[Rfam]
RNA sequence: UUCAGUUAUGGAGACAUGGUACCGCACACCAUCAUCGGCAAAGUCGUUGGCGGCGUCUGUUCACUGAGCGGAGUGCUGGUCAUUGCACUUCCGGUUCCUGUCAUCGUUUCCAAC
Numbered sequence: 001u002u003c004a005g006u007u008a009u010g011g012a013g014a015c016a017u018g019g020u021a022c023c024g025c026a027c028a029c030c031a032u033c034a035u036c037g038g039c040a041a042a043g044u045c046g047u048u049g050g051c052g053g054c055g056u057c058u059g060u061u062c063a064c065u066g067a068g069c070g071g072a073g074u075g076c077u078g079g080u081c082a083u084u085g086c087a088c089u090u091c092c093g094g095u096u097c098c099u100g101u102c103a104u105c106g107u108u109u110c111c112a113a114c
Stems, first nucleotide, its partner, number of pairs: 002113001005110001008107004013102004018097002021095002037077004050062001
Potassium channel RNA editing signal: a 114-nucleotide RNA from Capitella teleta. By type it is a cis-regulatory element. This family represents a group of sequences related to the human potassium channel Kv1.1 hairpin element which directs the efficient modification of an adenosine to inosine by an adenosine deaminase acting on RNA (ADAR). The ADAR modification causes an isoleucine/valine recoding event which lies in the ion-conducting pore of the potassium channel. It is thought that this editing event targets the process of fast inactivation and allows a more rapid recovery from inactivation at negative potentials.